Rfam assigns this 124-nucleotide sequence from Ezakiella coagulans to the family "Streptococcus sRNA SpR18". On this family, see Mann et al., PLoS Pathog 2012: "Control of virulence by small RNAs in Streptococcus pneumoniae". Pairs were carried over by alignment from the consensus structure, which was predicted with mfold. Taxonomically the source falls in Ezakiella (Bacteria, Bacillati, Bacillota, Tissierellia). It is annotated as a small RNA.
RNA sequence: UUUAUCUCGCAAAUAGACAGCGUUGUGGUAUUAAAAUGGGAACAUUUGUAAAAAAGAAUAAAUUGAAUAAUAGUUCCAAGUGGUUUACAUUUGGACAAAAAAUUAGACCGUAGUUUUAAGCUGC
Dot-bracket structure: (((...........)))............(.....((((....((((........)))).............((.(((((((.....)))))))))...........)))).....).......